[Rfam]
RNA sequence: CAGCGUGCUAUCCUAAGGACCGGGGCUUGUCUGUAGCUCUAGGGUUCUCCAAGUGCAUGCCAGAGAAAAGGUCGGUCUUUGACUGUUCUGGCCUCUUAUGCCAUCAGCAGCCACUCAACUGUCCAACAGAU
Numbered sequence: 001c002a003g004c005g006u007g008c009u010a011u012c013c014u015a016a017g018g019a020c021c022g023g024g025g026c027u028u029g030u031c032u033g034u035a036g037c038u039c040u041a042g043g044g045u046u047c048u049c050c051a052a053g054u055g056c057a058u059g060c061c062a063g064a065g066a067a068a069a070g071g072u073c074g075g076u077c078u079u080u081g082a083c084u085g086u087u088c089u090g091g092c093c094u095c096u097u098a099u100g101c102c103a104u105c106a107g108c109a110g111c112c113a114c115u116c117a118a119c120u121g122u123c124c125a126a127c128a129g130a131u
Stems, first nucleotide, its partner, number of pairs: 013043001018039002020036001022034001024032001070124002073121003085111002089103003
Dot-bracket structure: ............(....(((.(.(.......).).).))...)..........................((.(((.........((..(((.........)))......)).......))).)).......
The record is a 131-nucleotide RNA from Dissostichus mawsoni, which matches "Small nucleolar RNA SNORA44" in Rfam. The family's consensus secondary structure was predicted with PFOLD. Rfam describes the family as follows. ACA44 is a member of the H/ACA class of snoRNA that guide the sites of modification of uridines to pseudouridines. The source organism's lineage runs through Eukaryota, Actinopteri, Acanthomorphata, Notothenioidei and Dissostichus. It scores 65 bits against the family's covariance model.